RNA sequence: AGAGUCGGUUAGGCAAUCGCUCUUUGUUCUUGAAGCAAAGAGAGGAAAGUCCGGGCUCCAUAGGGCAAGGUGCCAGGUAACGCCUGGGGGGUGUGAGCCCACGGAAAGUGCCACAGAAAAUAUACCGCCUGUCUGCUCUUGUAGCAGUGGGUAAGGGUGAAAUGGUGCGGUAAGAGCGCACCGCGCGAUUGGUAACAGUCGUGGCAGGGAAAACCCCACCUGGAGCAAGACCAAAUAGGAAUCCAUUUGAUCGAAAGGUCAUAAUGUGCGGCCCGCACGGGAUUCGGGUAGGUUGCUUGAGGCAUGCGGUGACGCAUGUCCCAGAUGAAUGAUUGCUCACGACAGAACCCGGCUUAUCGACCGACUCUUUUU
Dot-bracket structure: ((((((((((((((((((.(((((((((.....)))))))))....[[[.[[[[[((((...[[[[.((((((((((.....)))))(((((....)))).)((...((.((............(((((..(((((.......)))).))))..)).......((((((.......))))))(((((((((....)))))))).)..))...)))))))))))))...((((......((((((....................(((((.]]]]))))))))))).....))))......((((((((....))))))))..........)))))))..........]]]]]]]].).))))))))))....